[Rfam]
RNA sequence: UCUUGUUCCUAAGUACUAGUGCCGCAGGAGUGUUUUUACUAUCUCCUGCUGCUUAAGUGCUUAUCAAGAAGU
Numbered sequence: 001u002c003u004u005g006u007u008c009c010u011a012a013g014u015a016c017u018a019g020u021g022c023c024g025c026a027g028g029a030g031u032g033u034u035u036u037u038a039c040u041a042u043c044u045c046c047u048g049c050u051g052c053u054u055a056a057g058u059g060c061u062u063a064u065c066a067a068g069a070a071g072u
Stems, first nucleotide, its partner, number of pairs: 002071003006067002010063008019054001024049007